[Rfam]
RNA sequence: CUUGACUACUAUUGACCGUUAUUGUAUAUUUAAGACAAUCAUUUACCAAAAUAUAUGUGGAGAUUUGCUGAAUUUCCUUUUUUAUUUAGUAAGUGAUUAAAAAGUUUCCAGUAGCGUUUGUCUACAAGGUAAUAGGAGGAUUAAGUAUUAUGCAAAACGGUAAAGUAAAAUGGUUCAACAAUGAAAAAGGUUUUGGUUUUAUCGAAGUUGAAGGCGGAGACGAUGUAUUCGUUCACUUCACAGCUAUCGAAGGUGACGGUUACAAAUCUUUAGAAGAAGGUCAAGAAGUUUCUUUUGAAAUCGUUGAAGGAAACCGUGGCCCUCAAGCUGCUAACGUAGUAAAACUUUAAUCACAAAAUCGUAUGAUUAACGAUACACACAUAUAGGAAGCUCACUAUUUAUAGUGGGCUUCUUUUU
Numbered sequence: 001c002u003u004g005a006c007u008a009c010u011a012u013u014g015a016c017c018g019u020u021a022u023u024g025u026a027u028a029u030u031u032a033a034g035a036c037a038a039u040c041a042u043u044u045a046c047c048a049a050a051a052u053a054u055a056u057g058u059g060g061a062g063a064u065u066u067g068c069u070g071a072a073u074u075u076c077c078u079u080u081u082u083u084a085u086u087u088a089g090u091a092a093g094u095g096a097u098u099a100a101a102a103a104g105u106u107u108c109c110a111g112u113a114g115c116g117u118u119u120g121u122c123u124a125c126a127a128g129g130u131a132a133u134a135g136g137a138g139g140a141u142u143a144a145g146u147a148u149u150a151u152g153c154a155a156a157a158c159g160g161u162a163a164a165g166u167a168a169a170a171u172g173g174u175u176c177a178a179c180a181a182u183g184a185a186a187a188a189g190g191u192u193u194u195g196g197u198u199u200u201a202u203c204g205a206a207g208u209u210g211a212a213g214g215c216g217g218a219g220a221c222g223a224u225g226u227a228u229u230c231g232u233u234c235a236c237u238u239c240a241c242a243g244c245u246a247u248c249g250a251a252g253g254u255g256a257c258g259g260u261u262a263c264a265a266a267u268c269u270u271u272a273g274a275a276g277a278a279g280g281u282c283a284a285g286a287a288g289u290u291u292c293u294u295u296u297g298a299a300a301u302c303g304u305u306g307a308a309g310g311a312a313a314c315c316g317u318g319g320c321c322c323u324c325a326a327g328c329u330g331c332u333a334a335c336g337u338a339g340u341a342a343a344a345c346u347u348u349a350a351u352c353a354c355a356a357a358a359u360c361g362u363a364u365g366a367u368u369a370a371c372g373a374u375a376c377a378c379a380c381a382u383a384u385a386g387g388a389a390g391c392u393c394a395c396u397a398u399u400u401a402u403a404g405u406g407g408g409c410u411u412c413u414u415u416u417u
Stems, first nucleotide, its partner, number of pairs: 002015004025204001033200002037198004042189003052183002056180003060176002063174003066147004071142001075140007085102003116125002153160001209303003222230002235289004243282001244280002247274002250271003255268002308323003325347003329342001332339001351373002357368004385414012